The family of this 117-nucleotide RNA sequence from Desulfoscipio gibsoniae is "Molybdenum/Tungsten riboswitch aptamer (Moco RNA motif)". NCBI's taxonomy places the organism under Bacteria, Bacillati, Bacillota, Eubacteriales, Desulfoscipio gibsoniae.

RNA sequence: AAUAGUAAUGAUUUCCGAGUUAACCGGCCUUAGGCAAUGGCGAUGGCAGUUAACCUGCAGGGUAUAAAUGGAAACGUUUAUGCCUCCCUUUUGGAAAGGAAAUCAUACCUUGUGUGG
Numbered sequence: 001a002a003u004a005g006u007a008a009u010g011a012u013u014u015c016c017g018a019g020u021u022a023a024c025c026g027g028c029c030u031u032a033g034g035c036a037a038u039g040g041c042g043a044u045g046g047c048a049g050u051u052a053a054c055c056u057g058c059a060g061g062g063u064a065u066a067a068a069u070g071g072a073a074a075c076g077u078u079u080a081u082g083c084c085u086c087c088c089u090u091u092u093g094g095a096a097a098g099g100a101a102a103u104c105a106u107a108c109c110u111u112g113u114g115u116g117g
Stems, first nucleotide, its partner, number of pairs: 004110001011103006019054006027047003034041002060085011086094002